Small nucleolar RNA SNORD27: a 72-nucleotide RNA sequence from Pan troglodytes. The family's RNA type in Rfam is C/D-box small nucleolar RNA. Rfam links the family to the GO terms RNA processing and nucleolus. The literature on the family includes a 1996 paper in Nature by Tycowski et al., "A mammalian gene with introns instead of exons generating stable RNA products".
[Rfam]
RNA sequence: ACUUCAUGACAUACACAAAAUGACAAGCAUACAGUGGAACUUCCAAGUGAGAUCAUCUUACUUCUGAAAAGU
Numbered sequence: 001a002c003u004u005c006a007u008g009a010c011a012u013a014c015a016c017a018a019a020a021u022g023a024c025a026a027g028c029a030u031a032c033a034g035u036g037g038a039a040c041u042u043c044c045a046a047g048u049g050a051g052a053u054c055a056u057c058u059u060a061c062u063u064c065u066g067a068a069a070a071g072u
Base pairs, nucleotide, nucleotide: 001072002071003069004068